[Rfam]
Nucleotides: 099
Stems, first nucleotide, its partner, number of pairs: 004093004010085005015077001018075004025066004034059004042051003
Number, partner (000 for none) and nucleotide at each position: 001000g002000g003000c004093c005092c006091a007090g008000u009000c010085c011084c012083g013082u014081g015077c016000g017000g018075c019074g020073a021072g022000a023000g024000c025066c026065c027064g028063u029000g030000a031000a032000c033000c034059c035058c036057g037056u038000c039000a040000g041000g042051u043050c044049c045000g046000g047000a048000a049044g050043g051042a052000a053000g054000c055000a056037g057036c058035g059034g060000u061000a062000a063028g064027c065026g066025g067000u068000g069000u070000c071000c072021c073020u074019u075018g076000g077015g078000u079000g080000c081014c082013a083012c084011g085010g086000c087000c088000a089000c090007c091006u092005g093004g094000g095000u096000c097000u098000c099000c
The family of this 99-nucleotide RNA from Dethiosulfovibrio peptidovorans is "Bacterial small signal recognition particle RNA". The source organism's lineage runs through Bacteria, Thermotogati, Synergistota, Dethiosulfovibrio and Dethiosulfovibrio peptidovorans. The family's RNA type in Rfam is non-coding RNA gene. A reference for the family is Rosenblad et al. (2003), "SRPDB: Signal Recognition Particle Database", Nucleic Acids Res. A search with the family's covariance model found it, with a score of 69 bits. The family's consensus secondary structure is taken from published work.